[Rfam]
RNA sequence: GUAGAAUUCUAGAGGGCCAUAGAAAGAGUAUCCACAUUAUAAUCUUUGUCAGAUUUCUAUAAAUCUGUGAAAUUUAUU
Numbered sequence: 001g002u003a004g005a006a007u008u009c010u011a012g013a014g015g016g017c018c019a020u021a022g023a024a025a026g027a028g029u030a031u032c033c034a035c036a037u038u039a040u041a042a043u044c045u046u047u048g049u050c051a052g053a054u055u056u057c058u059a060u061a062a063a064u065c066u067g068u069g070a071a072a073u074u075u076a077u078u
Stems, first nucleotide, its partner, number of pairs: 013046004021078002024075003028040003050067007
Dot-bracket structure: ............((((....[[.[[[.(((.......)))..))))...(((((((....))))))).....]]].]]
Overview:
The family of this 78-nucleotide RNA sequence from Microcaecilia unicolor is "Mammalian CPEB3 ribozyme". It scores 45 bits against the family's covariance model. Rfam's curators write: The mammalian CPEB3 ribozyme is a self cleaving RNA located in the second intron of the CPEB3 gene which belongs to a family of genes regulating messenger RNA polyadenylation. Its family is annotated with RNA nuclease activity in the Gene Ontology.